RNA: sul1 RNA
RNA sequence: GUCGGACCCGGUUUUUCGGGUGGCUCGGCCCGGCGCCAAUCCCCGGGACAACC
Numbered sequence: 001g002u003c004g005g006a007c008c009c010g011g012u013u014u015u016u017c018g019g020g021u022g023g024c025u026c027g028g029c030c031c032g033g034c035g036c037c038a039a040u041c042c043c044c045g046g047g048a049c050a051a052c053c
Stems, first nucleotide, its partner, number of pairs: 006021006029047005